[Rfam]
RNA sequence: AGAACCUUUAAGAACAGUCCCGAGAGGCUGGGAAGGGAUCGGAUAAAAUGCGGCAUAUGUAAUACCGCAUCAUGGGAUCAGUAUGCCUUCUCACUAUCACGGGUGAGGAGGCUUUUUUUGU
Numbered sequence: 001a002g003a004a005c006c007u008u009u010a011a012g013a014a015c016a017g018u019c020c021c022g023a024g025a026g027g028c029u030g031g032g033a034a035g036g037g038a039u040c041g042g043a044u045a046a047a048a049u050g051c052g053g054c055a056u057a058u059g060u061a062a063u064a065c066c067g068c069a070u071c072a073u074g075g076g077a078u079c080a081g082u083a084u085g086c087c088u089u090c091u092c093a094c095u096a097u098c099a100c101g102g103g104u105g106a107g108g109a110g111g112c113u114u115u116u117u118u119u120g121u
Stems, first nucleotide, its partner, number of pairs: 005036005015030005044074002048070006055063002081116001083114001085112010

The record is a 121-nucleotide sequence from Domibacillus mangrovi, which matches "PyrR binding site" in Rfam. It is annotated as a cis-regulatory element. The match comes from Rfam's covariance-model search (63 bits). The family's consensus secondary structure is taken from published work. Rfam's curators write: This family represents the PyrR binding site and terminator structure. Lineage of the source: Bacteria > Bacillota > Caryophanales > Bacillaceae > Domibacillus.